[Rfam]
The family of this 139-nucleotide sequence from Bacillus salinus is "Group II catalytic intron D1-D4-4". Its family is annotated with Group II intron splicing in the Gene Ontology. The base pairs follow the family's consensus structure. Group II introns are found in rRNA, tRNA and mRNA of organelles in fungi, plants and protists, and also in mRNA in bacteria.

RNA sequence: UUAUUGGUGAAAGUCCAAUCUGAGUAAGUGCCAAGACGCUCAGUAGCUGACAGGCAACUGGUGGAGAAAUCCUAAGGUUGAAGCCCUGUGACAAUGUAACUCCUAAAGAGUGCUAGCAAACUAACAGGUUGUAACAUAA
Numbered sequence: 001u002u003a004u005u006g007g008u009g010a011a012a013g014u015c016c017a018a019u020c021u022g023a024g025u026a027a028g029u030g031c032c033a034a035g036a037c038g039c040u041c042a043g044u045a046g047c048u049g050a051c052a053g054g055c056a057a058c059u060g061g062u063g064g065a066g067a068a069a070u071c072c073u074a075a076g077g078u079u080g081a082a083g084c085c086c087u088g089u090g091a092c093a094a095u096g097u098a099a100c101u102c103c104u105a106a107a108g109a110g111u112g113c114u115a116g117c118a119a120a121c122u123a124a125c126a127g128g129u130u131g132u133a134a135c136a137u138a139a
Base pairs, nucleotide, nucleotide: 020043021042022041023040024039050089051088052087053086054085055080056079057078058077059076064071065070096113097112099111100110101109102108116132117131118130
Dot-bracket structure: ...................(((((..............)))))......((((((((((....((....))....)))))....)))))......((.((((.....))))))..(((...........))).......